[Rfam]
The record is a 164-nucleotide RNA from Medicago truncatula, which matches "MIR2619 microRNA precursor family" in Rfam. Gene Ontology terms of the family: miRNA-mediated post-transcriptional gene silencing and RISC complex. The match comes from Rfam's covariance-model search (157 bits).
Nucleotides: 164
Base pairs, nucleotide, nucleotide: 001164002163004161005160007158008157012153013152014151015150016149017148018147019146020145021144022143023142024141026139027138028137029136030135031134032133033132034131035130036129037128038127039126040125041124042123043122044121045120066093067092069090070089071088072087073086074085075084
Number, partner (000 for none) and nucleotide at each position: 001164a002163a003000a004161c005160a006000a007158c008157c009000u010000c011000c012153u013152a014151u015150g016149u017148u018147u019146u020145g021144a022143u023142u024141c025000u026139u027138u028137g029136g030135c031134a032133g033132u034131u035130u036129u037128g038127g039126a040125c041124c042123c043122c044121u045120a046000a047000a048000c049000a050000a051000a052000a053000c054000a055000a056000a057000a058000a059000a060000a061000u062000u063000g064000a065000c066093a067092c068000g069090u070089g071088g072087c073086a074085c075084c076000u077000c078000a079000c080000u081000u082000a083000g084075g085074g086073u087072g088071u089070c090069a091000c092067g093066u094000c095000a096000g097000a098000g099000u100000u101000g102000a103000c104000c105000g106000a107000g108000u109000c110000a111000a112000c113000a114000a115000u116000g117000g118000a119000c120045u121044g122043g123042g124041g125040g126039u127038c128037c129036a130035a131034a132033a133032c134031u135030g136029c137028c138027a139026a140000u141024g142023a143022a144021u145020c146019a147018a148017a149016a150015c151014a152013u153012a154000u155000g156000g157008g158007g159000c160005u161004g162000u163002u164001u